Shown here is an 80-nucleotide RNA from Pipistrellus kuhlii, a member of the family "Small nucleolar RNA U105B". The organism belongs to Pipistrellus, within Eukaryota. The base pairs follow the family's consensus structure, which was predicted with WAR. Rfam links the family to the GO terms RNA processing and nucleolus. The family is grouped with related families in Rfam's "SNORD105 clan". It scores 88 bits against the family's covariance model. It is annotated as a C/D-box small nucleolar RNA.
[Rfam]
Nucleotides: 080
Stems, first nucleotide, its partner, number of pairs: 005075001007073003010021001012019002029050005
Number, partner (000 for none) and nucleotide at each position: 001000c002000u003000g004000g005075g006000u007073g008072c009071g010021g011000c012019u013018g014000a015000u016000g017000a018013c019012a020000a021010u022000g023000c024000u025000g026000c027000u028000g029050c030049u031048g032047a033046g034000g035000c036000u037000c038000a039000g040000u041000g042000a043000u044000u045000g046033c047032u048031c049030a050029g051000u052000c053000u054000c055000g056000a057000a058000g059000u060000a061000a062000a063000c064000g065000c066000c067000c068000u069000g070000a071009c072008g073007c074000u075005c076000c077000a078000u079000g080000a